RNA sequence: CGUGUAGCCGCUGACUCGCGAAAUCCUCUCCUCUCGAGAGGAUCUCGCGAGUCAGCGGCUACACG
Numbered sequence: 001c002g003u004g005u006a007g008c009c010g011c012u013g014a015c016u017c018g019c020g021a022a023a024u025c026c027u028c029u030c031c032u033c034u035c036g037a038g039a040g041g042a043u044c045u046c047g048c049g050a051g052u053c054a055g056c057g058g059c060u061a062c063a064c065g
Stems, first nucleotide, its partner, number of pairs: 001065003006060016023043006
The record is a 65-nucleotide sequence from Nematostella vectensis, which matches "mir-9456 microRNA precursor family" in Rfam.
It scores 82 bits against the family's covariance model.
NCBI's taxonomy places the organism under Eukaryota, Metazoa, Anthozoa, Edwardsiidae, Nematostella.